Background: Plastid-ycf2 5UTR RNA: a 72-nucleotide RNA sequence from Brassica carinata. It scores 81 bits against the family's covariance model. Rfam describes the family as follows. Plastid ycf2 is a non-coding RNA (ncRNA) recognised in plastids. It was found in the prime untranslated region (5UTR) of ycf2 genes, it presents a tRNA-like motif which suggests it can be involved in mRNA maturation, particularly involved in defining the precise 5' end of the transcript.
RNA sequence: GUGCAUCCAGUAGGAAUUGAACCUACAAUUCGCCAAUUAUGAGUUACGCUUUAACCAUUCAGCCAUGGAUGC
Numbered sequence: 001g002u003g004c005a006u007c008c009a010g011u012a013g014g015a016a017u018u019g020a021a022c023c024u025a026c027a028a029u030u031c032g033c034c035a036a037u038u039a040u041g042a043g044u045u046a047c048g049c050u051u052u053a054a055c056c057a058u059u060c061a062g063c064c065a066u067g068g069a070u071g072c
Stems, first nucleotide, its partner, number of pairs: 003072006010026005039066003043063003046058001048056001